[Rfam]
The record is a 105-nucleotide sequence from Desulforamulus hydrothermalis, which matches "SAM riboswitch aptamer (S box leader)" in Rfam.

RNA sequence: GUCUUAUCAAGAGUGGUGGAGGGACUGGCCCAAUGAAGCCCGGCAACCGGCCUAUUUCUGGCGGCGGUGCCAACUCCUGCAGGAUUAGUUCCUGAGAGAUAAGGU
Numbered sequence: 001g002u003c004u005u006a007u008c009a010a011g012a013g014u015g016g017u018g019g020a021g022g023g024a025c026u027g028g029c030c031c032a033a034u035g036a037a038g039c040c041c042g043g044c045a046a047c048c049g050g051c052c053u054a055u056u057u058c059u060g061g062c063g064g065c066g067g068u069g070c071c072a073a074c075u076c077c078u079g080c081a082g083g084a085u086u087a088g089u090u091c092c093u094g095a096g097a098g099a100u101a102a103g104g105u
Base pairs, nucleotide, nucleotide: 001105002104003103004102005101006100007099008098013041015040016039017038021031022030023029025079027077028076042071043070044069045068047067048066050062051061052060075097080094081093082092083091084090
Its family is annotated with regulation of gene expression in the Gene Ontology.